A member of the RNA family "mraW RNA" from Cellulomonas aerilata, 96 nucleotides long.
RNA sequence: GACGCCCCGUCCGGUGAGGUCUCCUCCCGCCUGCUCUGACGCACUUCCCCGGCGCCAGAGGGUCGGAGGGGGACCUGACCGGACGGCGCACCCCCG
Numbered sequence: 001g002a003c004g005c006c007c008c009g010u011c012c013g014g015u016g017a018g019g020u021c022u023c024c025u026c027c028c029g030c031c032u033g034c035u036c037u038g039a040c041g042c043a044c045u046u047c048c049c050c051g052g053c054g055c056c057a058g059a060g061g062g063u064c065g066g067a068g069g070g071g072g073a074c075c076u077g078a079c080c081g082g083a084c085g086g087c088g089c090a091c092c093c094c095c096g
Stems, first nucleotide, its partner, number of pairs: 010083006018075002021072005027066003031062002034060005040054003
Dot-bracket structure: .........((((((..((.(((((.(((.((.(((((.(((.........))).))))))).))).))))).))..)))))).............

The organism belongs to Cellulomonas, within Bacteria.